[Rfam]
RNA: Small nucleolar RNA snoR109
RNA sequence: UGGCUGUAGCUUUAUGAAUGUAAUUGAGAAGUUUACUGGCCGGUUGUUGUAAAUCUGUUGACAUACCUGCUUACUGAACUUCUAACAUUU
Numbered sequence: 001u002g003g004c005u006g007u008a009g010c011u012u013u014a015u016g017a018a019u020g021u022a023a024u025u026g027a028g029a030a031g032u033u034u035a036c037u038g039g040c041c042g043g044u045u046g047u048u049g050u051a052a053a054u055c056u057g058u059u060g061a062c063a064u065a066c067c068u069g070c071u072u073a074c075u076g077a078a079c080u081u082c083u084a085a086c087a088u089u090u
Base pairs, nucleotide, nucleotide: 027083028082029081030080031079032078033077038071039070040069042067043066044065046062047061048060049059